[Rfam]
Nucleotides: 073
Stems, first nucleotide, its partner, number of pairs: 001072007010026004028044005049065005
Number, partner (000 for none) and nucleotide at each position: 001072a002071g003070u004069c005068c006067u007066g008000u009000a010026g011025u012024g013023u014000a015000g016000c017000g018000g019000u020000c021000a022000a023013g024012c025011a026010c027000a028044g029043g030042g031041g032040c033000c034000u035000u036000u037000g038000a039000a040032g041031c042030c043029c044028u045000u046000a047000a048000c049065c050064c051063c052062a053061g054000u055000u056000c057000g058000a059000g060000u061053c062052u063051g064050g065049g066007c067006a068005g069004g070003g071002c072001u073000a
A member of the RNA family "tRNA" from Candidatus Nitrosarchaeum limnium, 73 nucleotides long. Rfam's curators write: Transfer RNA (tRNA) molecules are approximately 80 nucleotides in length. A search with the family's covariance model found it, with a score of 61 bits. It is annotated as a transfer RNA. The family's consensus secondary structure is taken from published work.